[Rfam]
RNA sequence: GUGCCAUGAUGUCACCUGUCAACACAUCAUUCUGAAGAAUUGUGUGGAGACCUUUGCAACUGAGCACC
Numbered sequence: 001g002u003g004c005c006a007u008g009a010u011g012u013c014a015c016c017u018g019u020c021a022a023c024a025c026a027u028c029a030u031u032c033u034g035a036a037g038a039a040u041u042g043u044g045u046g047g048a049g050a051c052c053u054u055u056g057c058a059a060c061u062g063a064g065c066a067c068c
Stems, first nucleotide, its partner, number of pairs: 001067004

A member of the RNA family "Small nucleolar RNA SNORD63" from Pitta sordida, 68 nucleotides long. About the family: snoRNA U63 is found in both humans and mice. It scores 54 bits against the family's covariance model. The family's consensus secondary structure was predicted with PFOLD. The source organism's lineage runs through Eukaryota, Metazoa, Bilateria, Saurischia and Pitta.